[Rfam]
RNA: Ruegeria cis8 sRNA
RNA sequence: AUGGUCAGGAUUUUCGCGAUAUAGGGGAUCAGCGGCAGGUUGAGGAUCAACAGCACCAGAUUGCCCAAAUACAUCGAGAUGAUCACCGCCCAGAACACGCCCGGUUCAUCGACCAUCAGCCGUGGUCC
Numbered sequence: 001a002u003g004g005u006c007a008g009g010a011u012u013u014u015c016g017c018g019a020u021a022u023a024g025g026g027g028a029u030c031a032g033c034g035g036c037a038g039g040u041u042g043a044g045g046a047u048c049a050a051c052a053g054c055a056c057c058a059g060a061u062u063g064c065c066c067a068a069a070u071a072c073a074u075c076g077a078g079a080u081g082a083u084c085a086c087c088g089c090c091c092a093g094a095a096c097a098c099g100c101c102c103g104g105u106u107c108a109u110c111g112a113c114c115a116u117c118a119g120c121c122g123u124g125g126u127c128c
Stems, first nucleotide, its partner, number of pairs: 004017002007014002026128002029125003033122004038114003043109001045107002048104001053100002061093003066088001073083003